[Rfam]
RNA sequence: UAGCCCAUGAUGUUUAAAAUGGGGCUGUGGAUACCUACUUAAAUUUUU
Numbered sequence: 001u002a003g004c005c006c007a008u009g010a011u012g013u014u015u016a017a018a019a020u021g022g023g024g025c026u027g028u029g030g031a032u033a034c035c036u037a038c039u040u041a042a043a044u045u046u047u048u
Stems, first nucleotide, its partner, number of pairs: 003025004028037003
Shown here is a 48-nucleotide RNA from Propithecus coquereli, a member of the family "XIST RNA A repeat". The literature on the family includes a 2011 paper in RNA by Duszczyk et al., "The Xist RNA A-repeat comprises a novel AUCG tetraloop fold and a platform for multimerization". The source organism's lineage runs through Eukaryota, Deuterostomia, Sarcopterygii, Tetrapoda and Propithecus.